RNA sequence: GCACCGGAUUGGAAGUUUUUCCGUAUGGUCCAUUCGCUGCACAUCGAAGGUAGAGCGACGUCAGAUGUGCAAACGGUGC
Numbered sequence: 001g002c003a004c005c006g007g008a009u010u011g012g013a014a015g016u017u018u019u020u021c022c023g024u025a026u027g028g029u030c031c032a033u034u035c036g037c038u039g040c041a042c043a044u045c046g047a048a049g050g051u052a053g054a055g056c057g058a059c060g061u062c063a064g065a066u067g068u069g070c071a072a073a074c075g076g077u078g079c
Stems, first nucleotide, its partner, number of pairs: 001079006010032003038071008
A member of the RNA family "CyVA-1 RNA", 79 nucleotides long. The sequence is in the family's curated seed alignment. About the family: Cyanobacteria, Acidobacteria (1 example), Verrucomicrobia (1 example).